[Rfam]
The record is a 93-nucleotide RNA from Kingdonia uniflora, which matches "Small nucleolar RNA snoR109" in Rfam. Pairs were carried over by alignment from the consensus structure, which was predicted with WAR. Rfam 15.1 lists 680 matches to the family in 220 species. A search with the family's covariance model found it, with a score of 68 bits. Gene Ontology terms of the family: nucleolus and RNA processing. The family's RNA type in Rfam is H/ACA-box small nucleolar RNA.
RNA sequence: CGGCUGUAGCAAAAUAGAUCAUAGAAGUUUACUGGCCGUUUGACGUGAGAUUUAUCUCAAUCGUUGGAUCUGCUUACCAAAUUUCUCACAUUU
Numbered sequence: 001c002g003g004c005u006g007u008a009g010c011a012a013a014a015u016a017g018a019u020c021a022u023a024g025a026a027g028u029u030u031a032c033u034g035g036c037c038g039u040u041u042g043a044c045g046u047g048a049g050a051u052u053u054a055u056c057u058c059a060a061u062c063g064u065u066g067g068a069u070c071u072g073c074u075u076a077c078c079a080a081a082u083u084u085c086u087c088a089c090a091u092u093u
Base pairs, nucleotide, nucleotide: 023086024085025084026083027082028081029080034074035073036072038070040068041067042065043064044063045062